[Rfam]
This 88-nucleotide RNA belongs to the Rfam family "OmrA-B family". The match comes from Rfam's covariance-model search (83 bits). The family's consensus secondary structure was predicted with WAR.
RNA sequence: CCCAGAGGUAUUGAUUGGUGAGAAUUCCUGGUACUCUGCUGAGUACAAUUCUUUUGCACCAACCUGCGCAGAUGCGCAGGUUUUUUUU
Numbered sequence: 001c002c003c004a005g006a007g008g009u010a011u012u013g014a015u016u017g018g019u020g021a022g023a024a025u026u027c028c029u030g031g032u033a034c035u036c037u038g039c040u041g042a043g044u045a046c047a048a049u050u051c052u053u054u055u056g057c058a059c060c061a062a063c064c065u066g067c068g069c070a071g072a073u074g075c076g077c078a079g080g081u082u083u084u085u086u087u088u
Stems, first nucleotide, its partner, number of pairs: 016061005021050001031046005062081008